[Rfam]
Rfam assigns this 85-nucleotide RNA sequence from Litoreibacter arenae to the family "chrB-a RNA". Taxonomically the source falls in Litoreibacter arenae (Bacteria, Rhodobacterales, Roseobacteraceae, Litoreibacter). The match comes from Rfam's covariance-model search (47 bits). It is annotated as a cis-regulatory element. Rfam 15.1 lists 347 matches to the family in 339 species.

RNA sequence: CUCAUGGGGAUCCCGCGACGCCCCGUGAGGCGACAGCCGAAUGUUCGUACCCUUCUGAAACCGAAAAACGGGGUACUUUACCAUG
Numbered sequence: 001c002u003c004a005u006g007g008g009g010a011u012c013c014c015g016c017g018a019c020g021c022c023c024c025g026u027g028a029g030g031c032g033a034c035a036g037c038c039g040a041a042u043g044u045u046c047g048u049a050c051c052c053u054u055c056u057g058a059a060a061c062c063g064a065a066a067a068a069c070g071g072g073g074u075a076c077u078u079u080a081c082c083a084u085g
Stems, first nucleotide, its partner, number of pairs: 005025005047076006